[Rfam]
RNA sequence: UCACAUGAAGUGCCGGGGCAAUAAAGAUUCUGACUUCCUUCUAAAUCAGAGUCUUAUUACCCUGGUUUUUUAUGUGG
Numbered sequence: 001u002c003a004c005a006u007g008a009a010g011u012g013c014c015g016g017g018g019c020a021a022u023a024a025a026g027a028u029u030c031u032g033a034c035u036u037c038c039u040u041c042u043a044a045a046u047c048a049g050a051g052u053c054u055u056a057u058u059a060c061c062c063u064g065g066u067u068u069u070u071u072a073u074g075u076g077g
Stems, first nucleotide, its partner, number of pairs: 001077002004074004009069002012066006020058003024055010035043001